Rfam assigns this 130-nucleotide sequence from Eubucco bourcierii to the family "U11 spliceosomal RNA".

RNA sequence: ACAAAGGUUUUCUGCCCUGCAUGGUACAGGGGCAGUUGCGUGGUUGCCUCUGUGGAACUGACAUCAAGAGAUUUCUGAAGUACAAUUUUUGUAGCGGGGGGCACCAGUGAUCACUCGUUCCAGCACCCUG
Dot-bracket structure: ........((((((((......))))(((((((((((....))))))))))).((((.(..........).)))).)))).................(((...(..(.(((.....))))..)..)))..
Pairs were carried over by alignment from the consensus structure, which is taken from published work. Rfam links the family to the GO terms pre-mRNA 5'-splice site binding, U11 snRNP and mRNA 5'-splice site recognition. Rfam classes the family as a spliceosomal small nuclear RNA. Taxonomically the source falls in Eubucco (Eukaryota, Eumetazoa, Gnathostomata, Neoaves). For this family Rfam cites "Evolution of spliceosomal snRNA genes in metazoan animals" (Marz et al., J Mol Evol, 2008).